[Rfam]
The record is a 175-nucleotide sequence from Pseudocoprococcus catus, which matches "Lysine riboswitch aptamer" in Rfam. For this family Rfam cites "Riboswitches Control Fundamental Biochemical Pathways in Bacillus subtilis and Other Bacteria" (Mandal et al., Cell, 2003). Lineage of the source: Bacteria > Bacillati > Bacillota > Lachnospirales > Pseudocoprococcus.
RNA sequence: UAAUUAAGUAGAGGCGCAUAUUUAUAUAAGUAGAACUCAGGAUGCAGUCAGGUGCAGAUGAAUGGGUUGGAAAGGAUGAUAUGCCGAAGCUUUAUAUUUCCUGGAAGAUAUAUUGCUGGGCAUACAGUUAAGAGCUGUAUGACUGUCAUCAUUUUGAUGGAGUGCUGCUUGAAGA
Numbered sequence: 001u002a003a004u005u006a007a008g009u010a011g012a013g014g015c016g017c018a019u020a021u022u023u024a025u026a027u028a029a030g031u032a033g034a035a036c037u038c039a040g041g042a043u044g045c046a047g048u049c050a051g052g053u054g055c056a057g058a059u060g061a062a063u064g065g066g067u068u069g070g071a072a073a074g075g076a077u078g079a080u081a082u083g084c085c086g087a088a089g090c091u092u093u094a095u096a097u098u099u100c101c102u103g104g105a106a107g108a109u110a111u112a113u114u115g116c117u118g119g120g121c122a123u124a125c126a127g128u129u130a131a132g133a134g135c136u137g138u139a140u141g142a143c144u145g146u147c148a149u150c151a152u153u154u155u156g157a158u159g160g161a162g163u164g165c166u167g168c169u170u171g172a173a174g175a
Base pairs, nucleotide, nucleotide: 006170007169008168009167010166011165016084017083018082019081020080021079023078024077025076034068035067036066037065038064039063088117089116090115093112094111095110096109097108098107099106118144119143121141122140123139124138125137126136127135128134146160147159148158149157150156151155
The match comes from Rfam's covariance-model search (114 bits). Riboswitches are metabolite binding domains within certain messenger RNAs that serve as precision sensors for their corresponding targets.